Shown here is a 49-nucleotide RNA sequence from Roseicitreum antarcticum, a member of the family "SAM/SAH riboswitch aptamer".
RNA sequence: GUCCUGUCACAACGGCUUCCUGGCGUGACGGGCGUAACCCAACGGAGCA
Numbered sequence: 001g002u003c004c005u006g007u008c009a010c011a012a013c014g015g016c017u018u019c020c021u022g023g024c025g026u027g028a029c030g031g032g033c034g035u036a037a038c039c040c041a042a043c044g045g046a047g048c049a
Base pairs, nucleotide, nucleotide: 004031005030006029007028008027009026010025013022014021015048016047017046019045020044

For this family Rfam cites "The structure of the SAM/SAH-binding riboswitch" (Weickhmann et al., Nucleic Acids Res, 2019). Gene Ontology terms of the family: regulation of gene expression and S-adenosylmethionine metabolic process. The base pairs follow the family's consensus structure, which is taken from published work. The match comes from Rfam's covariance-model search (58 bits).